[Rfam]
RNA sequence: CCCCCCGUAGCUCAGUGGCAGAGCGCCCGGCUGUAGUGGGGCGGGCGGAAACCGGGUGGUCAGGGGUUCGAAUCCCCUCGGGGGGA
Numbered sequence: 001c002c003c004c005c006c007g008u009a010g011c012u013c014a015g016u017g018g019c020a021g022a023g024c025g026c027c028c029g030g031c032u033g034u035a036g037u038g039g040g041g042c043g044g045g046c047g048g049a050a051a052c053c054g055g056g057u058g059g060u061c062a063g064g065g066g067u068u069c070g071a072a073u074c075c076c077c078u079c080g081g082g083g084g085g086a
Base pairs, nucleotide, nucleotide: 001085002084003083004082005081006080007079010024011023012022013021026056027055028054029053030052062078063077064076065075066074

The family of this 86-nucleotide RNA sequence from Desulfurococcaceae archaeon AG1 is "tRNA". The family's RNA type in Rfam is transfer RNA. The organism belongs to Desulfurococcaceae, within Archaea. A search with the family's covariance model found it, with a score of 62 bits. Its family is annotated with triplet codon-amino acid adaptor activity in the Gene Ontology.